[Rfam]
Rfam assigns this 255-nucleotide RNA sequence from Pelagirhabdus alkalitolerans to the family "BsrG".
Rfam classes the family as a small RNA.
bsrE, bsrG and bsrH pair through intermolecular interactions with antisense sRNAs. They form type I toxin/antitoxin system that includes an mRNA encoding for a short, toxic peptide (bsrE, bsrG and bsrH) and an antitoxin that is comprised of an antisense RNA. bsrG encodes a 39-amino-acid toxin, and the 180 nucleotide antisense sRNA called SR4 acts as the antitoxin (they overlap by 123 nucleotides). SR4 interaction with the 3'UTR of bsrG RNA promotes bsrG degradation and inhibits its translation. BsrG interferes with cell envelope biosynthesis, causes membrane invaginations and delocalisation of the cell wall synthesis and initiates autolysis. bsrE RNA encodes 30 amino-acid toxin peptide. Its antitoxin gene, SR5 overlaps by 112 nucleotides at the 3' end of bsrE. SR5 also overlaps bsrG from nucleotide 163 to 52 (Rfam overlap check). The antitoxin SR5 promotes bsrE degradation but unlike SR4 it does not directly inhibits toxin mRNA translation.
The literature on the family includes a 2016 paper in RNA Biol by Muller et al., "A multistress responsive type I toxin-antitoxin system: bsrE/SR5 from the B. subtilis chromosome".
Rfam links the family to the GO terms toxin activity and autolysis.
The organism belongs to Pelagirhabdus, within Bacteria.
RNA sequence: AAUAGAUUUACUACUCAUGGGCGGAGCAGUAUCCACCUACCUUUUGAACAAGAAAGGAGGUGGUGCUGUUGACAAUGUAUGAAACAUUUACGAUUAUUCUUGAUUUGUCUCUUUUAAUUGUGGCAGUACUUGCCUUAAAAGACGAAAAAAAAUAAUCCGCCUAUGAGUUGAGAGCUCGGCGGAUUAUUCUCGCUGGAUGCUAUCCCCCUUGAAGGGAGUAGAUCUAUUUAAGCUGUUAGUGUUGAAGCACUAGCA
Numbered sequence: 001a002a003u004a005g006a007u008u009u010a011c012u013a014c015u016c017a018u019g020g021g022c023g024g025a026g027c028a029g030u031a032u033c034c035a036c037c038u039a040c041c042u043u044u045u046g047a048a049c050a051a052g053a054a055a056g057g058a059g060g061u062g063g064u065g066c067u068g069u070u071g072a073c074a075a076u077g078u079a080u081g082a083a084a085c086a087u088u089u090a091c092g093a094u095u096a097u098u099c100u101u102g103a104u105u106u107g108u109c110u111c112u113u114u115u116a117a118u119u120g121u122g123g124c125a126g127u128a129c130u131u132g133c134c135u136u137a138a139a140a141g142a143c144g145a146a147a148a149a150a151a152a153u154a155a156u157c158c159g160c161c162u163a164u165g166a167g168u169u170g171a172g173a174g175c176u177c178g179g180c181g182g183a184u185u186a187u188u189c190u191c192g193c194u195g196g197a198u199g200c201u202a203u204c205c206c207c208c209u210u211g212a213a214g215g216g217a218g219u220a221g222a223u224c225u226a227u228u229u230a231a232g233c234u235g236u237u238a239g240u241g242u243u244g245a246a247g248c249a250c251u252a253g254c255a
Base pairs, nucleotide, nucleotide: 001228002227003226004225005224007222008221009220011218012202013201014167015166016165017164018163019162020161021160024157025156033063034062035061037059038058040057041056042055043054044053045052071134073132074131075130076128077127084098086097109123110122178190179189203217204216205215206214234255235254236253237252238251239250240249241248242247
Dot-bracket structure: (((((.(((.(((((((((((..((.......(((.((.((((((......)))))))).))).......(.(((((......(.(..........))..........((...........))...)).))).).....................))..))))))))..........((.........))..........))((((.......))))).))).))))).....(((((((((....)))))))))